[Rfam]
RNA sequence: AUUGGCAGAUGAAGAAUUGAUUAAUAUUAUGCUUAAAACACACAGAAGAAUAGUGUUGAUAAACAAUCUCCGCUUAUUAUCUGAUGCCAAU
Numbered sequence: 001a002u003u004g005g006c007a008g009a010u011g012a013a014g015a016a017u018u019g020a021u022u023a024a025u026a027u028u029a030u031g032c033u034u035a036a037a038a039c040a041c042a043c044a045g046a047a048g049a050a051u052a053g054u055g056u057u058g059a060u061a062a063a064c065a066a067u068c069u070c071c072g073c074u075u076a077u078u079a080u081c082u083g084a085u086g087c088c089a090a091u
Stems, first nucleotide, its partner, number of pairs: 003089005
Shown here is a 91-nucleotide sequence from Brassica oleracea, a member of the family "Small nucleolar RNA R16". A reference for the family is Galardi et al. (2002), "Purified box C/D snoRNPs are able to reproduce site-specific 2'-O-methylation of target RNA in vitro", Mol Cell Biol. A search with the family's covariance model found it, with a score of 67 bits. Lineage of the source: Eukaryota > Euphyllophyta > Gunneridae > Brassicaceae > Brassica oleracea.